[Rfam]
RNA sequence: GUUUGAAUGAUGACUUGUGUUGUCGGAUACCCCUUCACUCUCCAUGAGUGAGACAAAUAGAGUCUGACAAAC
Numbered sequence: 001g002u003u004u005g006a007a008u009g010a011u012g013a014c015u016u017g018u019g020u021u022g023u024c025g026g027a028u029a030c031c032c033c034u035u036c037a038c039u040c041u042c043c044a045u046g047a048g049u050g051a052g053a054c055a056a057a058u059a060g061a062g063u064c065u066g067a068c069a070a071a072c
Stems, first nucleotide, its partner, number of pairs: 001072005

Small nucleolar RNA SNORD101: a 72-nucleotide RNA sequence from Echinops telfairi. The sequence is in the family's curated seed alignment. Rfam links the family to the GO terms RNA processing and nucleolus. The base pairs follow the family's consensus structure, which was predicted with PFOLD.